[Rfam]
Shown here is a 313-nucleotide RNA from Camponotus floridanus, a member of the family "Arthropod 7SK RNA". Rfam 15.1 lists 229 matches to the family in 137 species. Lineage of the source: Eukaryota > Eumetazoa > Arthropoda > Mandibulata > Camponotus.

RNA sequence: GGAAGCGUGUGCUAGUGAUUGCACAGCUGAACAUCGAUCGCUAAACGUACAGAAAACUUUGGCAGAUCUGCUCAGUAGGUGUUAUCACGUUGUCGUAAGCUUCAAGUAGCUUCUGUAAAAUAGACUCCCGAUUGCGCCUGCAUCUUCGUGGCUCGUUUACGACCUCGGAUUUGCACGCCUGCACGGUUGAGUCCUGACGUCGCUCCUCGAAGUACCGCGAUUUCCAAAUUGGGGGGUAAUCGAAUAGGUAAGACGAGGUAAUUUGUCGCUUCCAUAUACAGGCACUGCAGAUAGCGGUACGCCAUUUUUUGUU
Numbered sequence: 001g002g003a004a005g006c007g008u009g010u011g012c013u014a015g016u017g018a019u020u021g022c023a024c025a026g027c028u029g030a031a032c033a034u035c036g037a038u039c040g041c042u043a044a045a046c047g048u049a050c051a052g053a054a055a056a057c058u059u060u061g062g063c064a065g066a067u068c069u070g071c072u073c074a075g076u077a078g079g080u081g082u083u084a085u086c087a088c089g090u091u092g093u094c095g096u097a098a099g100c101u102u103c104a105a106g107u108a109g110c111u112u113c114u115g116u117a118a119a120a121u122a123g124a125c126u127c128c129c130g131a132u133u134g135c136g137c138c139u140g141c142a143u144c145u146u147c148g149u150g151g152c153u154c155g156u157u158u159a160c161g162a163c164c165u166c167g168g169a170u171u172u173g174c175a176c177g178c179c180u181g182c183a184c185g186g187u188u189g190a191g192u193c194c195u196g197a198c199g200u201c202g203c204u205c206c207u208c209g210a211a212g213u214a215c216c217g218c219g220a221u222u223u224c225c226a227a228a229u230u231g232g233g234g235g236g237u238a239a240u241c242g243a244a245u246a247g248g249u250a251a252g253a254c255g256a257g258g259u260a261a262u263u264u265g266u267c268g269c270u271u272c273c274a275u276a277u278a279c280a281g282g283c284a285c286u287g288c289a290g291a292u293a294g295c296g297g298u299a300c301g302c303c304a305u306u307u308u309u310u311g312u313u
Stems, first nucleotide, its partner, number of pairs: 001273007015088005027075003032070002036068004040063004281303003284298005